[Rfam]
RNA sequence: AUUCCCUUUCACGCCGCGAUCGCUGAUAAUCCGUGUCCGGUUUGCACACCGGAAUCCAGGAGAGUUCAUGUAU
Numbered sequence: 001a002u003u004c005c006c007u008u009u010c011a012c013g014c015c016g017c018g019a020u021c022g023c024u025g026a027u028a029a030u031c032c033g034u035g036u037c038c039g040g041u042u043u044g045c046a047c048a049c050c051g052g053a054a055u056c057c058a059g060g061a062g063a064g065u066u067c068a069u070g071u072a073u
Stems, first nucleotide, its partner, number of pairs: 036053006

Shown here is a 73-nucleotide RNA from Enterobacter sp. 638, a member of the family "PyrD leader". Pairs were carried over by alignment from the consensus structure, which is taken from published work.